[Rfam]
RNA sequence: ACGCGCGAAAGGAGGUGGUCCGGAACAUGCAUGAUUCUGGGACUCGCGAGGUGACUGUCCGCUAGUCGCCGUCCCGCCUCGGACGCCCCGCGCAUGCGGGGAUGUUCACCAGUCGUGUCGGCGGCUGGCGAAUACCAGGCAAUCACCCGAUCCCCGGGCCGAUGGAUCAGUCCUGUCCAUCCCCGCCUUGUGCGGGAAGGCCCGGGGAUCGUUCUUU
Numbered sequence: 001a002c003g004c005g006c007g008a009a010a011g012g013a014g015g016u017g018g019u020c021c022g023g024a025a026c027a028u029g030c031a032u033g034a035u036u037c038u039g040g041g042a043c044u045c046g047c048g049a050g051g052u053g054a055c056u057g058u059c060c061g062c063u064a065g066u067c068g069c070c071g072u073c074c075c076g077c078c079u080c081g082g083a084c085g086c087c088c089c090g091c092g093c094a095u096g097c098g099g100g101g102a103u104g105u106u107c108a109c110c111a112g113u114c115g116u117g118u119c120g121g122c123g124g125c126u127g128g129c130g131a132a133u134a135c136c137a138g139g140c141a142a143u144c145a146c147c148c149g150a151u152c153c154c155c156g157g158g159c160c161g162a163u164g165g166a167u168c169a170g171u172c173c174u175g176u177c178c179a180u181c182c183c184c185g186c187c188u189u190g191u192g193c194g195g196g197a198a199g200g201c202c203c204g205g206g207g208a209u210c211g212u213u214c215u216u217u
Stems, first nucleotide, its partner, number of pairs: 014059006060130007068122004073117001075115001148211013162180006
RNA: Actinobacteria sRNA Ms_IGR-5
Organism: Thermomonospora echinospora